[Rfam]
RNA sequence: UGUCUCAAAGCUUAAGCCAUGCAUGUCUAAGUAGAAGCCCUAGCAAGGCGAAACCGCGGAAGGCUCAUUAAAUCAGUCUGAAUCUAAAGGCAUUUGUUAGAAUCGAUUUUGUCGCAUUUUUACUUGGAUAACUGUGGUAAUUCUAUAGCUAAUACAUGGACACCGUGGUACCACUGUUUCACCUACGGCUGAAACAGAGACCGCUAUUGUUGCAUGGAACGCACUGGGAUUCUCAGGAAUUUCAAUAAAAACGAUGAAUCACAACAAAUUAGCCGAGCGUAUGGUCUCGAACCGACGCUGUACCUUUCGAGCGACUGCCUUAUCAGCUUUCGAUUGUAGGGUAUUGUCCUACAAUGGCGAUAACGGGUAACGGGGAAUCAGGGUUCGAUUCCCGGAGAGGGAGCCUGAGAAACGGCUACCACAUCUAAGGAAGGCAGCAGGCACGCAAAUUACCCACUCUCAGCACGGGGAGGUAGUGACAAAAAAUAACGAUGCGUGUCUCUUUCUGAGGCCUCGCAAUCGGAAUGGAUUUAUACUUAAAUCACUGAAUGAGGAGCAA
Numbered sequence: 001u002g003u004c005u006c007a008a009a010g011c012u013u014a015a016g017c018c019a020u021g022c023a024u025g026u027c028u029a030a031g032u033a034g035a036a037g038c039c040c041u042a043g044c045a046a047g048g049c050g051a052a053a054c055c056g057c058g059g060a061a062g063g064c065u066c067a068u069u070a071a072a073u074c075a076g077u078c079u080g081a082a083u084c085u086a087a088a089g090g091c092a093u094u095u096g097u098u099a100g101a102a103u104c105g106a107u108u109u110u111g112u113c114g115c116a117u118u119u120u121u122a123c124u125u126g127g128a129u130a131a132c133u134g135u136g137g138u139a140a141u142u143c144u145a146u147a148g149c150u151a152a153u154a155c156a157u158g159g160a161c162a163c164c165g166u167g168g169u170a171c172c173a174c175u176g177u178u179u180c181a182c183c184u185a186c187g188g189c190u191g192a193a194a195c196a197g198a199g200a201c202c203g204c205u206a207u208u209g210u211u212g213c214a215u216g217g218a219a220c221g222c223a224c225u226g227g228g229a230u231u232c233u234c235a236g237g238a239a240u241u242u243c244a245a246u247a248a249a250a251a252c253g254a255u256g257a258a259u260c261a262c263a264a265c266a267a268a269u270u271a272g273c274c275g276a277g278c279g280u281a282u283g284g285u286c287u288c289g290a291a292c293c294g295a296c297g298c299u300g301u302a303c304c305u306u307u308c309g310a311g312c313g314a315c316u317g318c319c320u321u322a323u324c325a326g327c328u329u330u331c332g333a334u335u336g337u338a339g340g341g342u343a344u345u346g347u348c349c350u351a352c353a354a355u356g357g358c359g360a361u362a363a364c365g366g367g368u369a370a371c372g373g374g375g376a377a378u379c380a381g382g383g384u385u386c387g388a389u390u391c392c393c394g395g396a397g398a399g400g401g402a403g404c405c406u407g408a409g410a411a412a413c414g415g416c417u418a419c420c421a422c423a424u425c426u427a428a429g430g431a432a433g434g435c436a437g438c439a440g441g442c443a444c445g446c447a448a449a450u451u452a453c454c455c456a457c458u459c460u461c462a463g464c465a466c467g468g469g470g471a472g473g474u475a476g477u478g479a480c481a482a483a484a485a486a487u488a489a490c491g492a493u494g495c496g497u498g499u500c501u502c503u504u505u506c507u508g509a510g511g512c513c514u515c516g517c518a519a520u521c522g523g524a525a526u527g528g529a530u531u532u533a534u535a536c537u538u539a540a541a542u543c544a545c546u547g548a549a550u551g552a553g554g555a556g557c558a559a
Stems, first nucleotide, its partner, number of pairs: 003484001005482001009477001010444001016442003020439003025057002031054002037049002064397003074317003083310002088305003123158001125156002132148006167202003172197001207267006224253001230239003277298004282294004319367003326358003333355008371394004375386004399420002402417003422433001424431002450475001452474003458470004490522003493518004498513001499511004529550002531547001533546001
Background: Eukaryotic small subunit ribosomal RNA: a 559-nucleotide part of an RNA from Paragnathia formica. Rfam's curators put it in the seed alignment.